A member of the RNA family "Fluoride riboswitch aptamer (crcB RNA motif)" from Acidocella sp. MX-AZ02, 66 nucleotides long.
The match comes from Rfam's covariance-model search (57 bits).

RNA sequence: CAGAGGCACGGGGAUGGAGUCCCCCCAAAACCGCUCCUUCGGGGAGCUGAUGACUCCUGCACGGAU
Number, nucleotide and partner (000 for none) at each position: 001c000002a000003g000004a000005g000006g000007c000008a000009c000010g025011g024012g023013g022014a000015u000016g057017g056018a055019g054020u053021c052022c013023c012024c011025c010026c000027a000028a000029a000030a000031c000032c000033g047034c046035u045036c044037c000038u000039u000040c000041g000042g000043g000044g036045a035046g034047c033048u000049g000050a000051u000052g021053a020054c019055u018056c017057c016058u000059g000060c000061a000062c000063g000064g000065a000066u000
The base pairs follow the family's consensus structure, which is taken from published work.